[Rfam]
This 217-nucleotide sequence from Anaerosalibacter bizertensis belongs to the Rfam family "T-box leader". The organism belongs to Anaerosalibacter, within Bacteria.
RNA sequence: AUAUAUGCGUUGAGGGAAAAUAGUAAAUAUUAAUGGUCUUAGAGAGGAAGUCCUUGUGGUGAAAGACUUUUGGCCCACUUAAUGUUGAACCCGUUCCUGAGCUUCUAGACUGAAAUAAAUUAGGUCUAUACGGUGGCACCGUUAUAACUUUCGAGUGGACUUAUGAUUUUUAUAAGUCUAUUAGAGUGGUAUCGCGAAACAAACCUUCGUCUCUAUC
Numbered sequence: 001a002u003a004u005a006u007g008c009g010u011u012g013a014g015g016g017a018a019a020a021u022a023g024u025a026a027a028u029a030u031u032a033a034u035g036g037u038c039u040u041a042g043a044g045a046g047g048a049a050g051u052c053c054u055u056g057u058g059g060u061g062a063a064a065g066a067c068u069u070u071u072g073g074c075c076c077a078c079u080u081a082a083u084g085u086u087g088a089a090c091c092c093g094u095u096c097c098u099g100a101g102c103u104u105c106u107a108g109a110c111u112g113a114a115a116u117a118a119a120u121u122a123g124g125u126c127u128a129u130a131c132g133g134u135g136g137c138a139c140c141g142u143u144a145u146a147a148c149u150u151u152c153g154a155g156u157g158g159a160c161u162u163a164u165g166a167u168u169u170u171u172a173u174a175a176g177u178c179u180a181u182u183a184g185a186g187u188g189g190u191a192u193c194g195c196g197a198a199a200c201a202a203a204c205c206u207u208c209g210u211c212u213c214u215a216u217c
Stems, first nucleotide, its partner, number of pairs: 007102002015097004026086006035075003046071006106128006131141003158178007183214004194210005

Annotation: It scores 128 bits against the family's covariance model. By type it is a cis-regulatory leader.